[Rfam]
RNA sequence: CUCGCCGCCGAGUCGAGUCCCGGUCCAUCGUGGGCCGUGGUCGAUGACUCGGGACGAGACGAGAUGUGGCCGCCUCGCGGCUGAAUCGCAAG
Numbered sequence: 001c002u003c004g005c006c007g008c009c010g011a012g013u014c015g016a017g018u019c020c021c022g023g024u025c026c027a028u029c030g031u032g033g034g035c036c037g038u039g040g041u042c043g044a045u046g047a048c049u050c051g052g053g054a055c056g057a058g059a060c061g062a063g064a065u066g067u068g069g070c071c072g073c074c075u076c077g078c079g080g081c082u083g084a085a086u087c088g089c090a091a092g
Stems, first nucleotide, its partner, number of pairs: 001058004060088003068082005
eL15-Euryarchaeota ribosomal protein leader: a 92-nucleotide sequence. Rfam's curators put it in the seed alignment. The family's consensus secondary structure is taken from published work.